[Rfam]
RNA: mir-290 microRNA precursor family
Organism: Carlito syrichta
RNA sequence: GUGGCACUCAAUUGUGGAAGCACUCUUCCGACUUGUUCUGGUGAAAAGUGCUGCAACAUUUGAGUGUCAC
Numbered sequence: 001g002u003g004g005c006a007c008u009c010a011a012u013u014g015u016g017g018a019a020g021c022a023c024u025c026u027u028c029c030g031a032c033u034u035g036u037u038c039u040g041g042u043g044a045a046a047a048g049u050g051c052u053g054c055a056a057c058a059u060u061u062g063a064g065u066g067u068c069a070c
Base pairs, nucleotide, nucleotide: 004067005066006065007064008063009062010061011060014057015056017054019052020051021050022049023048024047026045027044028043